Overview:
A member of the RNA family "Small nucleolar RNA SNORD53/SNORD92" from Chaetura pelagica, 84 nucleotides long. Taxonomically the source falls in Chaetura (Eukaryota, Chordata, Tetrapoda, Apodinae). For this family Rfam cites "RNomics: an experimental approach that identifies 201 candidates for novel, small, non-messenger RNAs in mouse" (Huttenhofer et al., EMBO J, 2001). The base pairs follow the family's consensus structure. Rfam links the family to the GO terms RNA processing and nucleolus.

Nucleotides: 084
Base pairs, nucleotide, nucleotide: 001084002083003082004081
Number, partner (000 for none) and nucleotide at each position: 001084a002083u003082g004081c005000a006000g007000u008000g009000a010000u011000g012000a013000u014000c015000u016000c017000u018000u019000a020000a021000a022000u023000u024000a025000u026000a027000c028000u029000u030000u031000c032000a033000a034000c035000u036000c037000a038000c039000u040000g041000a042000u043000u044000c045000u046000u047000c048000a049000a050000u051000g052000a053000a054000g055000a056000u057000g058000u059000g060000a061000a062000u063000u064000u065000c066000c067000u068000u069000g070000g071000c072000u073000g074000u075000g076000u077000c078000u079000g080000a081004g082003c083002a084001u